[Rfam]
RNA sequence: CACAGUGGGGUGUGGAGGUCCCCGCUAUAUUCUAACCCUAAUGUCGAGCCUUGCCGCUCACCCCCUGCCGUUCGCUCGCUGUUUUGGUGGCUGUCUUUCAGCGGGUGGGGUGAGCACCGAGAUACGCGGAAGAAAAACACGUCAGCCUGGGGGACCUUCCCGCCCCGCAUCCGAGCCCGCUCUAUCUACGAGGCUGUCCGCACAAUGCCCCGCCGCCGCUCCUUCCCCCUUAUAGGCCGUGGUCAGCCGCUUCGGCACUGCUGCCGCGAAGAGUUCGUCUCUGCAGCCUCUGUGAGAGGGUGGCGGGGCCGGUGGGAGAGCCCGCGGGCGGGCACGGAGAGCAACAAGGAGCUGCGCCGCUCGCUCACCGCCUGUCUGCCCGAGCUGUGACAUGAACAGGCCGCGGCGGCUCCGACACAU
Dot-bracket structure: ....((((((((.((((((((((................................(((((............(((((((((........[[[[.[[.[)))))))))...))))).....................].].].]]]]...)))))))))).))))))))...((.((((..................................(((((((..(((.(...........(((((.((((.((....))...))))))))).((((.....)))).........).)))...))))))).......................)))).))............((((..((((((.........(((((..((.(........).))....))))).))))))))))........
RNA: Vertebrate telomerase RNA
Organism: Leptobrachium leishanense